[Rfam]
RNA sequence: CAACCGGCCCUUUUCAGGGCCACACAUGUUCAAAAAAGAGAUUUG
Numbered sequence: 001c002a003a004c005c006g007g008c009c010c011u012u013u014u015c016a017g018g019g020c021c022a023c024a025c026a027u028g029u030u031c032a033a034a035a036a037a038g039a040g041a042u043u044u045g
Base pairs, nucleotide, nucleotide: 006021007020008019009018010017011016
Shown here is a 45-nucleotide RNA sequence from Patiria miniata, a member of the family "Histone 3' UTR stem-loop". The match comes from Rfam's covariance-model search (40 bits). On this family, see Williams and Marzluff, Nucleic Acids Res 1995: "The sequence of the stem and flanking sequences at the 3' end of histone mRNA are critical determinants for the binding of the stem-loop binding protein".